[Rfam]
RNA: Histidine operon leader
RNA sequence: UCAUCAUCGCCAUCAUCCUGACUAAGUCUUUCGGGAGGUUUACGUGUAACCGAGAGACAAGGAAAACUCUCGGUGGUUAAGUCCAAAUACAAAAUAUUUAGACCCUCGAGAGACCAGAAUCUCUCGGGGGUUUUUUAAU
Numbered sequence: 001u002c003a004u005c006a007u008c009g010c011c012a013u014c015a016u017c018c019u020g021a022c023u024a025a026g027u028c029u030u031u032c033g034g035g036a037g038g039u040u041u042a043c044g045u046g047u048a049a050c051c052g053a054g055a056g057a058c059a060a061g062g063a064a065a066a067c068u069c070u071c072g073g074u075g076g077u078u079a080a081g082u083c084c085a086a087a088u089a090c091a092a093a094a095u096a097u098u099u100a101g102a103c104c105c106u107c108g109a110g111a112g113a114c115c116a117g118a119a120u121c122u123c124u125c126g127g128g129g130g131u132u133u134u135u136u137a138a139u
Base pairs, nucleotide, nucleotide: 009047010046012039013038014037017035018034019033020032021031050073051072052071053070054069055068056067100133101132102131103130104129105128106127107126108125109124110123111122112121